[Rfam]
RNA sequence: AGAGGCCCUCCAUGACUGGGGUGGAACGCUUGCCUCGUCGCUGUGGCGAUGAAGCAAGCAUUCCGCCAGGCCACUCACGCUGCCCAC
Numbered sequence: 001a002g003a004g005g006c007c008c009u010c011c012a013u014g015a016c017u018g019g020g021g022u023g024g025a026a027c028g029c030u031u032g033c034c035u036c037g038u039c040g041c042u043g044u045g046g047c048g049a050u051g052a053a054g055c056a057a058g059c060a061u062u063c064c065g066c067c068a069g070g071c072c073a074c075u076c077a078c079g080c081u082g083c084c085c086a087c
Stems, first nucleotide, its partner, number of pairs: 004084003013073002016070002020067007028059006037050005
Shown here is an 87-nucleotide RNA sequence from Cnephaeus nilssonii, a member of the family "mir-9195 microRNA precursor family". Taxonomically the source falls in Cnephaeus (Eukaryota, Chordata, Euteleostomi, Tetrapoda).